RNA sequence: ACCCUCUGGUCUCCCUUUCCCAUCGGAUCUUGAUGCUGGUCUUGGUGGUCGUAAAGGAGGGAGAGUACACUGAAGCUGGCCUCACAGCGAUGCAGUUUUGUGUAGAGCAUCAGGCCAGAUUCAAACAUGC
Numbered sequence: 001a002c003c004c005u006c007u008g009g010u011c012u013c014c015c016u017u018u019c020c021c022a023u024c025g026g027a028u029c030u031u032g033a034u035g036c037u038g039g040u041c042u043u044g045g046u047g048g049u050c051g052u053a054a055a056g057g058a059g060g061g062a063g064a065g066u067a068c069a070c071u072g073a074a075g076c077u078g079g080c081c082u083c084a085c086a087g088c089g090a091u092g093c094a095g096u097u098u099u100g101u102g103u104a105g106a107g108c109a110u111c112a113g114g115c116c117a118g119a120u121u122c123a124a125a126c127a128u129g130c
Base pairs, nucleotide, nucleotide: 003060004059005058006057007056020048021047022046023045024044026041027040028039029038076118077117078116079115080114081113082112091109092108093107
RNA: Small nucleolar RNA SNORA61